Plastid-psbA-3 3UTR RNA: a 55-nucleotide RNA from Antirhea chinensis. Clan: Plastid-psbA 3UTR RNA clan.

[Rfam]
RNA sequence: AAAGGAGCAAUAAUUUCCUUCUUCUAUAUAAGAGGGCGUUAUUGCUCCUUUAUUU
Numbered sequence: 001a002a003a004g005g006a007g008c009a010a011u012a013a014u015u016u017c018c019u020u021c022u023u024c025u026a027u028a029u030a031a032g033a034g035g036g037c038g039u040u041a042u043u044g045c046u047c048c049u050u051u052a053u054u055u
Stems, first nucleotide, its partner, number of pairs: 001051014019034005
Plastid psbA-3 is a non-coding RNA (ncRNA) present in plastids. It was identified in inverted repeat sequences in the 3 prime untranslate region (3UTR) of photosystem II quinone-binding protein (psbA).